[Rfam]
RNA sequence: ACACGGAGAGGAGGUGGUCCGAGCCAAUGAAGAACCUUCGGACGCGUGAGGUGGUCGCCCGCUAGUCGGGGACCGCACAGGACGGUUCGUCCUCGACCGCCGACCCGGCGAGCGAGAACCAGGCGAUCACCGGAGCCCGCGGGAGUCGCGCCUCGUCCAGCGCGACGGCCGGUCGGUCCGCGACCACCGGCAGCCCGCGGGCUCUUGCCU
Numbered sequence: 001a002c003a004c005g006g007a008g009a010g011g012a013g014g015u016g017g018u019c020c021g022a023g024c025c026a027a028u029g030a031a032g033a034a035c036c037u038u039c040g041g042a043c044g045c046g047u048g049a050g051g052u053g054g055u056c057g058c059c060c061g062c063u064a065g066u067c068g069g070g071g072a073c074c075g076c077a078c079a080g081g082a083c084g085g086u087u088c089g090u091c092c093u094c095g096a097c098c099g100c101c102g103a104c105c106c107g108g109c110g111a112g113c114g115a116g117a118a119c120c121a122g123g124c125g126a127u128c129a130c131c132g133g134a135g136c137c138c139g140c141g142g143g144a145g146u147c148g149c150g151c152c153u154c155g156u157c158c159a160g161c162g163c164g165a166c167g168g169c170c171g172g173u174c175g176g177u178c179c180g181c182g183a184c185c186a187c188c189g190g191c192a193g194c195c196c197g198c199g200g201g202c203u204c205u206u207g208c209c210u
Base pairs, nucleotide, nucleotide: 013059014058015057016056017055018054060114061113062112063111065109066108068106069105070104074099075098133204134203135202136201137200138199139198140197141196142195143194147164148163149162150161151160
RNA: Actinobacteria sRNA Ms_IGR-5
Organism: Miniimonas arenae